[Rfam]
RNA sequence: AUACUUUAUGGGCAAAACUACUGAGAAGUAGUGGCGCAAAGCUAUGGGUCUUUAUGAGAUUGCCAGGUUGCAUUU
Numbered sequence: 001a002u003a004c005u006u007u008a009u010g011g012g013c014a015a016a017a018c019u020a021c022u023g024a025g026a027a028g029u030a031g032u033g034g035c036g037c038a039a040a041g042c043u044a045u046g047g048g049u050c051u052u053u054a055u056g057a058g059a060u061u062g063c064c065a066g067g068u069u070g071c072a073u074u075u
Stems, first nucleotide, its partner, number of pairs: 012037002017032006040069004045065003048060003